[Rfam]
RNA: Plastid-atpF group II-D1 intron
Organism: Tetracentron sinense
RNA sequence: GGAAAUUUUUUCGAUAUAGAACAUUCAUAUCGAUAAAAUAAAUUGAACCUAAA
Numbered sequence: 001g002g003a004a005a006u007u008u009u010u011u012c013g014a015u016a017u018a019g020a021a022c023a024u025u026c027a028u029a030u031c032g033a034u035a036a037a038a039u040a041a042a043u044u045g046a047a048c049c050u051a052a053a
Base pairs, nucleotide, nucleotide: 011033012032013031014030015029016028017027